[Rfam]
RNA sequence: UAACUCCUUACUAAGUGGUUUACUAUAACAUUAAAAUAACUUAUUUUGUUAAUUUACAAGAUUAUAGUAACUCCUUACUAAGUGGUUUACUAUAACAUUACGGUAAAUAUCCCCAUGUGUUAUAGUGACCCAACUAUCGUAAAUAUGUAUAUAUAUUAUCGUAAAUUAGUAUAUAAAAUUAUCGUAAAUGGAGGUGGCUACAGAAUAACAUAUUUUGUAGCUA
Numbered sequence: 001u002a003a004c005u006c007c008u009u010a011c012u013a014a015g016u017g018g019u020u021u022a023c024u025a026u027a028a029c030a031u032u033a034a035a036a037u038a039a040c041u042u043a044u045u046u047u048g049u050u051a052a053u054u055u056a057c058a059a060g061a062u063u064a065u066a067g068u069a070a071c072u073c074c075u076u077a078c079u080a081a082g083u084g085g086u087u088u089a090c091u092a093u094a095a096c097a098u099u100a101c102g103g104u105a106a107a108u109a110u111c112c113c114c115a116u117g118u119g120u121u122a123u124a125g126u127g128a129c130c131c132a133a134c135u136a137u138c139g140u141a142a143a144u145a146u147g148u149a150u151a152u153a154u155a156u157u158a159u160c161g162u163a164a165a166u167u168a169g170u171a172u173a174u175a176a177a178a179u180u181a182u183c184g185u186a187a188a189u190g191g192a193g194g195u196g197g198c199u200a201c202a203g204a205a206u207a208a209c210a211u212a213u214u215u216u217g218u219a220g221c222u223a
Base pairs, nucleotide, nucleotide: 002214003213008208009207010206012204015201016200017199018198019197021196022195023194024193026191031187032186033185036182037181038180039179041178042177045173047171048170049169050168051167052166053165054164055163056162057161060160061159062158064156065155066154067152068151069150075142076141077140078139082137083136084135085134086133087132088127089126090125091124092123093122094121095120096119097118098117102112103111